[Rfam]
RNA sequence: GGCGUUGCAGGUCUGAGCGGCGCGCCCUAUAUUGGGCCUGUCCGGGGCAACCCGGACUAUGGCGAUAAACGCACCUGCAAUAGACGGCUCGGACCCGGGGGCGGUACCCGGCGGCUCCACCAAACCCCGCGGCGUUGCGCGGUCAUGGGGCCGAAACAGGAUCGACGGACGUUCAAAGAGGCCAGCUUUCGCUCGGUGAGCUACCACCGUUAUCGGUGCAAAAGUACAGUUGCCAACGACAACCGUGCUCCGGUGGCUCUGGCUGCGUAAGCAGUUCGAGUACCGAAAACUAAGCCCUUGCGCUUAGCCGCGUAAGGCGGGGUUCGCAGGCACCUGGCAACAGAAGCCUGCACU
Numbered sequence: 001g002g003c004g005u006u007g008c009a010g011g012u013c014u015g016a017g018c019g020g021c022g023c024g025c026c027c028u029a030u031a032u033u034g035g036g037c038c039u040g041u042c043c044g045g046g047g048c049a050a051c052c053c054g055g056a057c058u059a060u061g062g063c064g065a066u067a068a069a070c071g072c073a074c075c076u077g078c079a080a081u082a083g084a085c086g087g088c089u090c091g092g093a094c095c096c097g098g099g100g101g102c103g104g105u106a107c108c109c110g111g112c113g114g115c116u117c118c119a120c121c122a123a124a125c126c127c128c129g130c131g132g133c134g135u136u137g138c139g140c141g142g143u144c145a146u147g148g149g150g151c152c153g154a155a156a157c158a159g160g161a162u163c164g165a166c167g168g169a170c171g172u173u174c175a176a177a178g179a180g181g182c183c184a185g186c187u188u189u190c191g192c193u194c195g196g197u198g199a200g201c202u203a204c205c206a207c208c209g210u211u212a213u214c215g216g217u218g219c220a221a222a223a224g225u226a227c228a229g230u231u232g233c234c235a236a237c238g239a240c241a242a243c244c245g246u247g248c249u250c251c252g253g254u255g256g257c258u259c260u261g262g263c264u265g266c267g268u269a270a271g272c273a274g275u276u277c278g279a280g281u282a283c284c285g286a287a288a289a290c291u292a293a294g295c296c297c298u299u300g301c302g303c304u305u306a307g308c309c310g311c312g313u314a315a316g317g318c319g320g321g322g323u324u325c326g327c328a329g330g331c332a333c334c335u336g337g338c339a340a341c342a343g344a345a346g347c348c349u350g351c352a353c354u
Stems, first nucleotide, its partner, number of pairs: 040057007061193005071186002074181003085171002089168003095111005112153007194209004200219002203217003320335004326351006
RNA: Alphaproteobacteria transfer-messenger RNA
Organism: Neotabrizicola shimadae